[Rfam]
Rfam assigns this 138-nucleotide RNA from Chiloscyllium punctatum to the family "Small nucleolar RNA SNORD10". It scores 71 bits against the family's covariance model.

RNA sequence: AUUUUAUGAUGAUUCCAUGCGUGUCAACUGAUCCUAGUACUUGUCUAGUACCUGGCACCUUGCUGACGUUUUGUCUGUGAGUAAUGUUGGUCACUAGACGAUUCUGGGAACAUGAUCAUGCUAUUCACUUCUGAAAAU
Number, nucleotide and partner (000 for none) at each position: 001a138002u137003u136004u135005u000006a000007u000008g000009a000010u000011g000012a000013u000014u000015c000016c000017a000018u000019g000020c000021g000022u000023g000024u000025c000026a000027a000028c000029u000030g000031a000032u000033c000034c000035u000036a000037g000038u000039a000040c000041u000042u100043g099044u098045c097046u096047a095048g094049u093050a000051c000052c000053u000054g000055g000056c000057a000058c000059c000060u000061u000062g000063c000064u000065g000066a000067c000068g000069u000070u000071u000072u000073g000074u000075c000076u000077g000078u000079g000080a000081g000082u000083a000084a000085u000086g000087u000088u000089g000090g000091u000092c000093a049094c048095u047096a046097g045098a044099c043100g042101a000102u000103u000104c000105u000106g000107g000108g000109a000110a000111c000112a000113u000114g000115a000116u000117c000118a000119u000120g000121c000122u000123a000124u000125u000126c000127a000128c000129u000130u000131c000132u000133g000134a000135a004136a003137a002138u001
Lineage of the source: Eukaryota > Opisthokonta > Metazoa > Galeomorphii > Chiloscyllium. Rfam links the family to the GO terms RNA processing and nucleolus.